[Rfam]
RNA sequence: GAGUUCACGGGCGUGGCGAGCCUAAGGGCUUUAAGCCCGAAGGCGGAGCGAAAGCGAGGACCCCGCAGCGAUGCGAGGGGGUCGCCUCCGAAAGGGGGUUCAGUCACGCUCGUGAGACCAGAAGCCGGGCGAUCUACUCCUGGGCAGGGCGAAGCCGGGUCGCGAGCCCGGUGGAGGCCCGAUAGGGAUGGUGAGGUGCAAAUCCCUCCCGUGACCUGGGAGUAGGGGCAAAAGACCAAUCUAGCCCGGCAAUAGCUGGUU
Dot-bracket structure: ....(((((((((((((..((((..((((.....))))..))))...((....)).....((((...((...))...))))...((((......))))....)))))))))))))..((.(...((((((...((((((((((((.((((...((((((.(....)))))))....))))....((((.((.((........))))))))..).))))))))))).((.......))......))))))......).))..
Shown here is a 261-nucleotide part of an RNA from Candidatus Korarchaeum cryptofilum, a member of the family "Archaeal large subunit ribosomal RNA". Taxonomically the source falls in Candidatus Korarchaeum cryptofilum (Archaea, Candidatus Korarchaeales, Candidatus Korarchaeaceae, Candidatus Korarchaeum).